[Rfam]
RNA sequence: UCCCAGUGCGCGUCUAGCAAGGAGCCUGCGUCCCAGAGCGUCCCGGGAGCGCCGCCGGCCGGUGCUCGGCUCCCCGGCCAUGCAGCGGCGGCCGAGGCGCAGCUCCGAGAGACGGUAGCGCCCCCUGUGAGGAGGCCCGAGAUGCCCCUGCCGCUGUGAACCCUGCCGCCCGCCAGGACGCGCUCAGCUCCGGACACGCUCAGCUCCGCGCGCCCGCGAGGAGCACCGAGUGGAGAGAGAGACAGAGCGGCGGGCGCGGCACGGGCCGCCCAGCACCCGCGGGGGAGGCCGGCCGGUGCGGCUCAGGGCCACGUACUCAGUCUGAGUAGAGUUGGCACCGGUGGCCAGGA
Numbered sequence: 001u002c003c004c005a006g007u008g009c010g011c012g013u014c015u016a017g018c019a020a021g022g023a024g025c026c027u028g029c030g031u032c033c034c035a036g037a038g039c040g041u042c043c044c045g046g047g048a049g050c051g052c053c054g055c056c057g058g059c060c061g062g063u064g065c066u067c068g069g070c071u072c073c074c075c076g077g078c079c080a081u082g083c084a085g086c087g088g089c090g091g092c093c094g095a096g097g098c099g100c101a102g103c104u105c106c107g108a109g110a111g112a113c114g115g116u117a118g119c120g121c122c123c124c125c126u127g128u129g130a131g132g133a134g135g136c137c138c139g140a141g142a143u144g145c146c147c148c149u150g151c152c153g154c155u156g157u158g159a160a161c162c163c164u165g166c167c168g169c170c171c172g173c174c175a176g177g178a179c180g181c182g183c184u185c186a187g188c189u190c191c192g193g194a195c196a197c198g199c200u201c202a203g204c205u206c207c208g209c210g211c212g213c214c215c216g217c218g219a220g221g222a223g224c225a226c227c228g229a230g231u232g233g234a235g236a237g238a239g240a241g242a243c244a245g246a247g248c249g250g251c252g253g254g255c256g257c258g259g260c261a262c263g264g265g266c267c268g269c270c271c272a273g274c275a276c277c278c279g280c281g282g283g284g285g286a287g288g289c290c291g292g293c294c295g296g297u298g299c300g301g302c303u304c305a306g307g308g309c310c311a312c313g314u315a316c317u318c319a320g321u322c323u324g325a326g327u328a329g330a331g332u333u334g335g336c337a338c339c340g341g342u343g344g345c346c347a348g349g350a
Stems, first nucleotide, its partner, number of pairs: 001285004006280003010276001021043003026036003045271003049267001051266003060107003066099001067097001070094001074091003077086002112157005118152001120151002127145003134138001163259004168255002171252003176248001181245001183241003188235004205229002208226001212224002288346001290344001292342008300333003306317002